[Rfam]
RNA sequence: CUUCAUGGAGCCCAGCCACAGCGGGGCUUCCGCGGCGCGCUCCUGCCCGUAGGUGGCCAGCAGGGCCUGGGCCUC
Numbered sequence: 001c002u003u004c005a006u007g008g009a010g011c012c013c014a015g016c017c018a019c020a021g022c023g024g025g026g027c028u029u030c031c032g033c034g035g036c037g038c039g040c041u042c043c044u045g046c047c048c049g050u051a052g053g054u055g056g057c058c059a060g061c062a063g064g065g066c067c068u069g070g071g072c073c074u075c
Base pairs, nucleotide, nucleotide: 016024017023031071033069038065043060044059045058047056048055049054
RNA: ASpks TB sRNA